[Rfam]
Nucleotides: 162
Base pairs, nucleotide, nucleotide: 003077004076005075006074007073008072009071011020013018025054031047032046033045090153091152092151093150094149102141103140105138106137107135108134109133110132111131
Number, partner (000 for none) and nucleotide at each position: 001000g002000u003077g004076c005075g006074a007073a008072g009071g010000g011020c012000c013018c014000a015000g016000c017000g018013g019000a020011g021000g022000g023000g024000u025054g026000u027000a028000a029000a030000u031047c032046u033045c034000c035000u036000a037000c038000u039000a040000u041000u042000g043000u044000u045033g046032a047031g048000a049000c050000c051000u052000c053000u054025c055000u056000a057000a058000c059000g060000a061000u062000u063000g064000u065000a066000u067000c068000u069000a070000a071009c072008c073007u074006u075005c076004g077003u078000a079000c080000a081000u082000a083000a084000g085000u086000c087000a088000c089000a090153g091152c092151c093150g094149u095000u096000u097000c098000g099000u100000a101000g102141g103140a104000c105138g106137c107135g108134u109133g110132g111131a112000u113000u114000g115000c116000a117000u118000a119000u120000u121000u122000u123000g124000u125000u126000a127000g128000g129000g130000u131111u132110u133109c134108a135107c136000g137106g138105c139000g140103u141102c142000u143000g144000a145000a146000a147000c148000c149094g150093c151092g152091g153090c154000a155000a156000c157000a158000u159000u160000g161000a162000c